[Rfam]
RNA sequence: GAUUCUGUCUGAUAUGUUUGAUAUUAGGUCGUUUUGUUGGAAACCGACUCAAUAUCAAACAUAUUCUUACAGCGCC
Numbered sequence: 001g002a003u004u005c006u007g008u009c010u011g012a013u014a015u016g017u018u019u020g021a022u023a024u025u026a027g028g029u030c031g032u033u034u035u036g037u038u039g040g041a042a043a044c045c046g047a048c049u050c051a052a053u054a055u056c057a058a059a060c061a062u063a064u065u066c067u068u069a070c071a072g073c074g075c076c
Stems, first nucleotide, its partner, number of pairs: 005072004011065015027049005